[Rfam]
RNA sequence: GUAGUACUGUGUGCAUAGUUGUCAUCUAUGUCUGGUAGCAGUAUCUGUUUGUGUUUUGCAUUCAGAUCUUGCUAUCCACACAAAGAAUGUGCAGCCAAAGAGUAAUAUGGGAUCAUAGUACUGGUCUAGUGUUAUGUGUUUGAACACAUCUCCCACUGGCCAGCCUCCAAAUUCUCAGACAAAA
Dot-bracket structure: ............((((............(((.(((((((((.(((((..(((.....)))..))))).)))))).))).)))......))))...............(((((........((((((.((((...(((((....))))).....)))))))))).........))))).......

The record is a 184-nucleotide RNA from Peromyscus maniculatus, which matches "Small nucleolar RNA SNORA23" in Rfam. Pairs were carried over by alignment from the consensus structure, which was predicted with RNAalifold. The source organism's lineage runs through Eukaryota, Deuterostomia, Craniata, Euteleostomi and Peromyscus maniculatus. The members of this family belong to the H/ACA class of snoRNAs which are thought to guide the sites of modification of uridines to pseudouridines. This family includes human snoRNA ACA23 (SNORA23) and mouse snoMBI-1. ACA23 is predicted to guide the pseudouridylation of residue U3737 and U4331 of 28S rRNA. Rfam 15.1 lists 1,092 matches to the family in 632 species. Its family is annotated with nucleolus and RNA processing in the Gene Ontology. The literature on the family includes a 2001 paper in EMBO J by Huttenhofer et al., "RNomics: an experimental approach that identifies 201 candidates for novel, small, non-messenger RNAs in mouse". A search with the family's covariance model found it, with a score of 190 bits.